A member of the RNA family "Small nucleolar RNA snoR4a" from Arabidopsis lyrata, 86 nucleotides long. The family's consensus secondary structure was predicted with WAR. The literature on the family includes a 2001 paper in RNA by Brown et al., "Multiple snoRNA gene clusters from Arabidopsis".
[Rfam]
RNA sequence: GGAAGUGAUGAAAUGGCAUUAAUGUUUUGUGACACCCAGUCUGAUCUGUCUCGGCAGAGUGAUUGAUUUGCCAUAUUUGCUGAUCC
Number, nucleotide and partner (000 for none) at each position: 001g086002g085003a084004a000005g000006u000007g000008a000009u000010g000011a000012a000013a000014u073015g072016g071017c070018a069019u000020u000021a000022a000023u000024g000025u000026u000027u000028u000029g000030u000031g000032a000033c000034a000035c000036c000037c000038a000039g000040u000041c000042u000043g000044a000045u000046c000047u000048g000049u000050c000051u000052c000053g000054g000055c000056a000057g000058a000059g000060u000061g000062a000063u000064u000065g000066a000067u000068u000069u018070g017071c016072c015073a014074u000075a000076u000077u000078u000079g000080c000081u000082g000083a000084u003085c002086c001